A member of the RNA family "FMN riboswitch aptamer (RFN element)" from Novispirillum itersonii, 183 nucleotides long. Taxonomically the source falls in Novispirillum (Bacteria, Pseudomonadati, Alphaproteobacteria, Rhodospirillales). Rfam links the family to the GO term FMN binding. The family's consensus secondary structure is taken from published work. The RFN element is a highly conserved domain that is found frequently in the 5'-untranslated regions of prokaryotic mRNAs that encode for flavin mononucleotide (FMN) biosynthesis and transport proteins. This element is a metabolite-dependent riboswitch that directly binds FMN in the absence of proteins.
RNA sequence: ACUUGUUCUCAGGGCAGGGUGAAACUCCCGACCGGCGGUACAUCGCCGCCCCGCAUCCGUGGGGUCCGGCGGCAGCCCGCGAGCGCCUGUUCCCGUGCAGAGGACCGCACAGCCGGAACAGGGUCAGCAGAUUCGGUGAAAAGCCGAAGCCGACGGUAACAGUCCGGAUGGAAGAGGAUAAGG
Number, nucleotide and partner (000 for none) at each position: 001a000002c000003u181004u180005g179006u178007u177008c176009u175010c174011a000012g000013g000014g000015c000016a000017g029018g028019g027020u000021g000022a000023a000024a000025c000026u000027c019028c018029c017030g000031a163032c162033c152034g151035g080036c079037g078038g077039u000040a000041c000042a000043u000044c000045g000046c000047c000048g000049c000050c000051c000052c000053g000054c000055a000056u000057c000058c000059g000060u000061g000062g000063g000064g000065u000066c000067c000068g000069g000070c000071g000072g000073c000074a000075g000076c000077c038078c037079g036080c035081g000082a000083g128084c127085g000086c000087c000088u000089g000090u000091u000092c000093c000094c000095g000096u000097g000098c000099a000100g000101a000102g000103g000104a000105c000106c000107g000108c000109a000110c000111a000112g000113c000114c000115g000116g000117a000118a000119c000120a000121g000122g000123g000124u000125c000126a000127g084128c083129a000130g000131a000132u148133u147134c146135g145136g144137u000138g000139a000140a000141a000142a000143g000144c136145c135146g134147a133148a132149g000150c000151c034152g033153a000154c166155g165156g164157u000158a000159a000160c000161a000162g032163u031164c156165c155166g154167g000168a000169u000170g000171g000172a000173a000174g010175a009176g008177g007178a006179u005180a004181a003182g000183g000